[Rfam]
Nucleotides: 179
Stems, first nucleotide, its partner, number of pairs: 002178005009171005015165002018162002021159006030150005036144003040141008049132011061120001066117002069108002071105005
Number, partner (000 for none) and nucleotide at each position: 001000u002178u003177a004176c005175a006174a007000u008000g009171a010170g011169u012168u013167u014000g015165u016164g017000a018162g019161u020000c021159u022158c023157c024156a025155u026154g027000c028000u029000g030150c031149u032148c033147u034146a035000a036144c037143a038142u039000u040141g041140c042139a043138u044137g045136g046135a047134g048000u049132c050131u051130a052129u053128g054127u055126c056125u057124g058123g059122a060000g061120u062000a063000u064000u065000g066117u067116c068000c069108u070107u071105c072104a073103u074102u075101c076000c077000c078000g079000u080000g081000c082000a083000a084000a085000u086000g087000c088000u089000g090000a091000a092000g093000u094000a095000a096000u097000g098000c099000a100000a101075g102074a103073a104072u105071g106000u107070g108069a109000a110000c111000a112000u113000u114000g115000g116067g117066a118000c119000u120061a121000u122059u123058c124057c125056a126055g127054a128053c129052g130051u131050a132049g133000c134047c135046u136045u137044c138043a139042u140041g141040c142038a143037u144036g145000u146034u147033a148032g149031a150030g151000u152000g153000a154026u155025g156024u157023g158022g159021a160000a161019a162018c163000c164016c165015g166000u167013g168012a169011a170010c171009u172000a173000c174006u175005u176004g177003u178002a179000a